[Rfam]
RNA sequence: AUUCUUGGUUUGCCUUAGACACAGUGUUCCCGUAGGUAAACUUGAAGCGGAGGAACCACCGUUGGGGCUAAUCUUUAAAAAGGAUAGAGACUUAAGUAUAAAGGAUAAAUAAGAGGUCCUUUUUCUCACAUCAUCCUUUAAACUUUAUAUUUCAUCCUUGUUAAAGAGGGACAUCUCUCAGUCCUAGCCCGUCAGCUAACUUCGUCGGCAUUGAGAGGAGACUGA
Numbered sequence: 001a002u003u004c005u006u007g008g009u010u011u012g013c014c015u016u017a018g019a020c021a022c023a024g025u026g027u028u029c030c031c032g033u034a035g036g037u038a039a040a041c042u043u044g045a046a047g048c049g050g051a052g053g054a055a056c057c058a059c060c061g062u063u064g065g066g067g068c069u070a071a072u073c074u075u076u077a078a079a080a081a082g083g084a085u086a087g088a089g090a091c092u093u094a095a096g097u098a099u100a101a102a103g104g105a106u107a108a109a110u111a112a113g114a115g116g117u118c119c120u121u122u123u124u125c126u127c128a129c130a131u132c133a134u135c136c137u138u139u140a141a142a143c144u145u146u147a148u149a150u151u152u153c154a155u156c157c158u159u160g161u162u163a164a165a166g167a168g169g170g171a172c173a174u175c176u177c178u179c180a181g182u183c184c185u186a187g188c189c190c191g192u193c194a195g196c197u198a199a200c201u202u203c204g205u206c207g208g209c210a211u212u213g214a215g216a217g218g219a220g221a222c223u224g225a
Stems, first nucleotide, its partner, number of pairs: 002046003047205006057064002065190003073166006169184004

Rfam assigns this 225-nucleotide RNA sequence from Tolypothrix bouteillei to the family "c-di-AMP riboswitch aptamer (ydaO/yuaA leader)". The match comes from Rfam's covariance-model search (57 bits).